[Rfam]
Nucleotides: 103
Stems, first nucleotide, its partner, number of pairs: 006098008020045003047082003050078002054076003060070002
Number, partner (000 for none) and nucleotide at each position: 001000g002000a003000a004000g005000c006098u007097c008096g009095u010094g011093c012092g013091g014000g015000a016000g017000a018000g019000u020045c021044c022043g023000c024000a025000u026000c027000a028000c029000c030000c031000g032000u033000a034000c035000g036000g037000g038000u039000g040000g041000u042000u043022c044021g045020g046000c047082g048081c049080c050078g051077a052000a053000g054076g055075a056074g057000c058000a059000a060070c061069u062000c063000c064000u065000c066000c067000c068000c069061g070060g071000a072000a073000c074056c075055u076054c077051u078050c079000a080049g081048g082047c083000a084000g085000c086000a087000g088000g089000g090000a091013c092012c093011g094010c095009a096008c097007g098006g099000g100000a101000c102000a103000g
Background: The family of this 103-nucleotide RNA from Actinoalloteichus hoggarensis is "Glycine riboswitch aptamer". From the family's description: This family represents the bacterial glycine riboswitch.